[Rfam]
RNA sequence: CCGGAAAAAGGCAAACCGUUUGAGAAGGCGGGGCGCAAAGUUACGGGUCCGUGGGCAUCACAUCGGAUGCAGUUGCCGAUGUGGGGCCUCAGGAUCGCCGGACUGCCAAGG
Numbered sequence: 001c002c003g004g005a006a007a008a009a010g011g012c013a014a015a016c017c018g019u020u021u022g023a024g025a026a027g028g029c030g031g032g033g034c035g036c037a038a039a040g041u042u043a044c045g046g047g048u049c050c051g052u053g054g055g056c057a058u059c060a061c062a063u064c065g066g067a068u069g070c071a072g073u074u075g076c077c078g079a080u081g082u083g084g085g086g087c088c089u090c091a092g093g094a095u096c097g098c099c100g101g102a103c104u105g106c107c108a109a110g111g
Stems, first nucleotide, its partner, number of pairs: 001111001004107001011036002016031006034097001039104004044100003047095003

c-di-GMP-I-GGC riboswitch aptamer: a 111-nucleotide sequence from Stieleria varia. The family has 40 seed sequences and 1,298 matches in Rfam 15.1. A reference for the family is Weinberg et al. (2017), "Bioinformatic analysis of riboswitch structures uncovers variant classes with altered ligand specificity", Proc Natl Acad Sci U S A. The base pairs follow the family's consensus structure, which is taken from published work.